[Rfam]
RNA sequence: AGUCAUAUUCUUCCACAGCUUUCUUGAACUUUCAUAGUUCUCAAGAUUUCUCAUUUUUCGUGAAUUUUCUUUUUGGAUUCCUUUUUGAGAAUUCAGAUAAUUAAACGAAGUUCAAGAAAGUUGUGGGAAAAUAUGACAA
Numbered sequence: 001a002g003u004c005a006u007a008u009u010c011u012u013c014c015a016c017a018g019c020u021u022u023c024u025u026g027a028a029c030u031u032u033c034a035u036a037g038u039u040c041u042c043a044a045g046a047u048u049u050c051u052c053a054u055u056u057u058u059c060g061u062g063a064a065u066u067u068u069c070u071u072u073u074u075g076g077a078u079u080c081c082u083u084u085u086u087g088a089g090a091a092u093u094c095a096g097a098u099a100a101u102u103a104a105a106c107g108a109a110g111u112u113c114a115a116g117a118a119a120g121u122u123g124u125g126g127g128a129a130a131a132u133a134u135g136a137c138a139a
Base pairs, nucleotide, nucleotide: 003136004135005134006133007132013126014125015124017122018121019120020119021118022117024115025114026113027112029110030109031108032107

A member of the RNA family "MIR396 microRNA precursor family" from Lactuca sativa, 139 nucleotides long. A reference for the family is Jones-Rhoades and Bartel (2004), "Computational identification of plant microRNAs and their targets, including a stress-induced miRNA", Mol Cell. The base pairs follow the family's consensus structure, which was predicted with WAR. Rfam 15.1 lists 744 matches to the family in 207 species.